Rfam assigns this 131-nucleotide RNA from Peromyscus maniculatus to the family "Small nucleolar RNA SNORA38".
Rfam's curators write: ACA38 is a member of the H/ACA class of snoRNA that guide the sites of modification of uridines to pseudouridines.
A search with the family's covariance model found it, with a score of 121 bits.
The source organism's lineage runs through Eukaryota, Chordata, Tetrapoda, Rodentia and Peromyscus maniculatus.
Its family is annotated with RNA processing, Cajal body and nucleolus in the Gene Ontology.
Pairs were carried over by alignment from the consensus structure, which was predicted with RNAfold.

[Rfam]
RNA sequence: UCCUCCUACAAAGGCGGGUUUUUGGUUCCUUGUCCUCAGACACGUAAGAAUCGGAGGCAAAGAUGUAUGGAUUUGCCAAGAUCUGGGGUCAGCUUGCUCCUCACAGGCUCUCGAUCAACUAUCCCACAGAG
Numbered sequence: 001u002c003c004u005c006c007u008a009c010a011a012a013g014g015c016g017g018g019u020u021u022u023u024g025g026u027u028c029c030u031u032g033u034c035c036u037c038a039g040a041c042a043c044g045u046a047a048g049a050a051u052c053g054g055a056g057g058c059a060a061a062g063a064u065g066u067a068u069g070g071a072u073u074u075g076c077c078a079a080g081a082u083c084u085g086g087g088g089u090c091a092g093c094u095u096g097c098u099c100c101u102c103a104c105a106g107g108c109u110c111u112c113g114a115u116c117a118a119c120u121a122u123c124c125c126a127c128a129g130a131g
Base pairs, nucleotide, nucleotide: 002057003056004055005054006053015044016043018041019040020039021038024030025029069124070123071122073121091109092108093107094106095105096104